The record is a 94-nucleotide RNA from Mycobacterium lacus, which matches "Mycobacterium sRNA ncrMT1302" in Rfam. The source organism's lineage runs through Bacteria, Actinomycetes, Mycobacteriales, Mycobacteriaceae and Mycobacterium.
Nucleotides: 094
Stems, first nucleotide, its partner, number of pairs: 003075005020042004028034001045062004079088003
Number, partner (000 for none) and nucleotide at each position: 001000a002000a003075g004074u005073g006072a007071c008000c009000u010000a011000u012000c013000u014000c015000a016000a017000g018000u019000g020042c021041c022040g023039g024000a025000a026000g027000a028034c029000g030000g031000g032000g033000u034028g035000a036000a037000a038000g039023c040022c041021g042020g043000c044000c045062g046061c047060g048059g049000a050000c051000a052000u053000c054000g055000u056000c057000a058000g059048c060047c061046g062045c063000c064000c065000c066000c067000a068000a069000g070000a071007g072006u073005c074004a075003c076000g077000c078000c079088g080087g081086g082000c083000c084000u085000g086081c087080c088079c089000g090000u091000g092000u093000c094000g